A member of the RNA family "mir-2807 microRNA precursor family" from Bombyx mori, 81 nucleotides long.

RNA sequence: UUAACUAAAAUUUGUAUUCAGUUGGAACACCCCUAGCGGCAAACAUAGGCAGAUAUUCCAACUCCAUACAAAUUCGAGUUA
Numbered sequence: 001u002u003a004a005c006u007a008a009a010a011u012u013u014g015u016a017u018u019c020a021g022u023u024g025g026a027a028c029a030c031c032c033c034u035a036g037c038g039g040c041a042a043a044c045a046u047a048g049g050c051a052g053a054u055a056u057u058c059c060a061a062c063u064c065c066a067u068a069c070a071a072a073u074u075c076g077a078g079u080u081a
Stems, first nucleotide, its partner, number of pairs: 009074008020063008029054001031049002036044001

The family has 8 seed sequences and 5,120 matches in Rfam 15.1. The family's consensus secondary structure was predicted with RNAalifold. For this family Rfam cites "MicroRNAs of Bombyx mori identified by Solexa sequencing" (Liu et al., BMC Genomics, 2010). Taxonomically the source falls in Bombyx (Eukaryota, Dicondylia, Panorpida, Bombycoidea).